[Rfam]
RNA: Fst antitoxin sRNA
Organism: Desulfovibrio sp. OH1186_COT-070
RNA sequence: GCCAGUAGUUAGGGGAUUUUUUGGUGUGACUAGUCGCCUAUUUAUCGUUGCGAUUGUGUAGCCAAUGCGCAAAUAAAGCAACGAUGCAAC
Numbered sequence: 001g002c003c004a005g006u007a008g009u010u011a012g013g014g015g016a017u018u019u020u021u022u023g024g025u026g027u028g029a030c031u032a033g034u035c036g037c038c039u040a041u042u043u044a045u046c047g048u049u050g051c052g053a054u055u056g057u058g059u060a061g062c063c064a065a066u067g068c069g070c071a072a073a074u075a076a077a078g079c080a081a082c083g084a085u086g087c088a089a090c
Stems, first nucleotide, its partner, number of pairs: 008087002026037004047082005056070003